Bacterial large subunit ribosomal RNA: a 513-nucleotide part of an RNA from Acidihalobacter ferrooxydans.
Pairs were carried over by alignment from the consensus structure, which is taken from published work.
It scores 2924 bits against the family's covariance model.

[Rfam]
RNA sequence: GAAUAAGCGCACAUGGUGGAUGCCUAGGCGGUAGGAGGCGAUGAAGGACGUAGUAGCCUGCGAUAAGCCUCGGGGAGUCGGCAAACAGACUUUGAUCCGGGGAUUUCCGAAUGGGGAAACCCAGCCAUCAUAAGAUGGUUAUCGCUCGCUGAAUACAUAGGUGAGCGAAGCGAACCUGGGGAAUUGAAACAUCUAAGUACCCAGAGGAAAAGAAAUCAACCGAGAUUCCGUUAGUAGCGGCGAGCGAACGCGGACUAGCCCUUAAGCAGUUUUUGUCUUAGUGGAACACAGUGGAAAAUGUGGCCAUAGUGGGUGAUAGCCCCGUACAUUAAAAGACGAUUAUUGUGAAAUCGAGUAGGGCGGGACACGUGAAAUCCUGUCUGAAUAUGGGGGGACCAUCCUCCAAGGCUAAAUACUCCCUACCGACCGAUAGUGAACCAGUACCGUGAGGGAAAGGCGAAAAGAACCCCAGUGAGGGGAGUGAAAUAGAACCUGAAACCGUGUGCGUACAAG
Numbered sequence: 001g002a003a004u005a006a007g008c009g010c011a012c013a014u015g016g017u018g019g020a021u022g023c024c025u026a027g028g029c030g031g032u033a034g035g036a037g038g039c040g041a042u043g044a045a046g047g048a049c050g051u052a053g054u055a056g057c058c059u060g061c062g063a064u065a066a067g068c069c070u071c072g073g074g075g076a077g078u079c080g081g082c083a084a085a086c087a088g089a090c091u092u093u094g095a096u097c098c099g100g101g102g103a104u105u106u107c108c109g110a111a112u113g114g115g116g117a118a119a120c121c122c123a124g125c126c127a128u129c130a131u132a133a134g135a136u137g138g139u140u141a142u143c144g145c146u147c148g149c150u151g152a153a154u155a156c157a158u159a160g161g162u163g164a165g166c167g168a169a170g171c172g173a174a175c176c177u178g179g180g181g182a183a184u185u186g187a188a189a190c191a192u193c194u195a196a197g198u199a200c201c202c203a204g205a206g207g208a209a210a211a212g213a214a215a216u217c218a219a220c221c222g223a224g225a226u227u228c229c230g231u232u233a234g235u236a237g238c239g240g241c242g243a244g245c246g247a248a249c250g251c252g253g254a255c256u257a258g259c260c261c262u263u264a265a266g267c268a269g270u271u272u273u274u275g276u277c278u279u280a281g282u283g284g285a286a287c288a289c290a291g292u293g294g295a296a297a298a299u300g301u302g303g304c305c306a307u308a309g310u311g312g313g314u315g316a317u318a319g320c321c322c323c324g325u326a327c328a329u330u331a332a333a334a335g336a337c338g339a340u341u342a343u344u345g346u347g348a349a350a351u352c353g354a355g356u357a358g359g360g361c362g363g364g365a366c367a368c369g370u371g372a373a374a375u376c377c378u379g380u381c382u383g384a385a386u387a388u389g390g391g392g393g394g395a396c397c398a399u400c401c402u403c404c405a406a407g408g409c410u411a412a413a414u415a416c417u418c419c420c421u422a423c424c425g426a427c428c429g430a431u432a433g434u435g436a437a438c439c440a441g442u443a444c445c446g447u448g449a450g451g452g453a454a455a456g457g458c459g460a461a462a463a464g465a466a467c468c469c470c471a472g473u474g475a476g477g478g479g480a481g482u483g484a485a486a487u488a489g490a491a492c493c494u495g496a497a498a499c500c501g502u503g504u505g506c507g508u509a510c511a512a513g
Base pairs, nucleotide, nucleotide: 007508008507009506010505011504012503013502014501015500016499022493023457024456027428028427029425030424031423032422033421034420035419036417037416038171039170046108047107048106049062050061051060068102069101070100071099072098073097074096077090078089079088113122114121115120123140124139125138126137127136128135129134142168143167144166145165146164147163148162149161150160175206176204177203178202179201180200186193187192216223217222226413227254228253229252230251231250237245238244257410258409259408260407267345268344269343270342273339274338275337276336277335278334279333281329282328283327287302288301289300290299305309311323312322313321358382359381360380361379362378363377364376365375389404390403391402392401393400444451445450467479468478469477470476
Lineage of the source: Bacteria > Pseudomonadati > Gammaproteobacteria > Ectothiorhodospiraceae > Acidihalobacter.